[Rfam]
RNA sequence: AGCCUGUGAUGAAUAUUUGAAUAAGAGUAGUGGACAGAAGUGAUUUCUGACACAUUUUCAAACUGAUGGCU
Numbered sequence: 001a002g003c004c005u006g007u008g009a010u011g012a013a014u015a016u017u018u019g020a021a022u023a024a025g026a027g028u029a030g031u032g033g034a035c036a037g038a039a040g041u042g043a044u045u046u047c048u049g050a051c052a053c054a055u056u057u058u059c060a061a062a063c064u065g066a067u068g069g070c071u
Stems, first nucleotide, its partner, number of pairs: 001071004